[Rfam]
Record summary: Shown here is a 101-nucleotide RNA sequence from Agreia sp. Leaf210, a member of the family "mraW RNA". Rfam classes the family as a cis-regulatory element. The source organism's lineage runs through Bacteria, Actinomycetota, Micrococcales, Microbacteriaceae and Agreia.
RNA sequence: UUCUAGUCGUUCCGCGUGACUCCCAGCCGUUCCUCGCCCUGACACACUUCCCCGGUGCCAGGUCGGAAUGGAUGGGGAUCAGGCAGAACGAACAGGUCGAU
Number, nucleotide and partner (000 for none) at each position: 001u000002u000003c000004u000005a000006g000007u000008c000009g000010u088011u087012c086013c000014g084015c083016g000017u000018g080019a079020c000021u077022c076023c075024c074025a073026g000027c071028c070029g069030u068031u067032c066033c000034u000035c065036g064037c000038c062039c061040u060041g059042a000043c057044a056045c055046a000047c000048u000049u000050c000051c000052c000053c000054g000055g045056u044057g043058c000059c041060a040061g039062g038063u000064c036065g035066g032067a031068a030069u029070g028071g027072a000073u025074g024075g023076g022077g021078a000079u019080c018081a000082g000083g015084c014085a000086g012087a011088a010089c000090g000091a000092a000093c000094a000095g000096g000097u000098c000099g000100a000101u000